The record is a 93-nucleotide RNA sequence from Eremococcus coleocola, which matches "THF (Tetrahydrofolate) riboswitch aptamer" in Rfam. The organism belongs to Eremococcus coleocola, within Bacteria. The family has 101 seed sequences and 747 matches in Rfam 15.1. The match comes from Rfam's covariance-model search (69 bits). Gene Ontology term of the family: tetrahydrofolate metabolic process.

RNA sequence: GUCAGAGUAGGGAUAAAGCGUUAAGUGUUACAGGAUGGAAUGUUGCCUGUAAACGAAGAUUGGAAGAUCGCGAUUUUAUCCUGCAUUCGCUAC
Numbered sequence: 001g002u003c004a005g006a007g008u009a010g011g012g013a014u015a016a017a018g019c020g021u022u023a024a025g026u027g028u029u030a031c032a033g034g035a036u037g038g039a040a041u042g043u044u045g046c047c048u049g050u051a052a053a054c055g056a057a058g059a060u061u062g063g064a065a066g067a068u069c070g071c072g073a074u075u076u077u078a079u080c081c082u083g084c085a086u087u088c089g090c091u092a093c
Stems, first nucleotide, its partner, number of pairs: 001093002004091002010082009019072003025054002028052007038088005058069004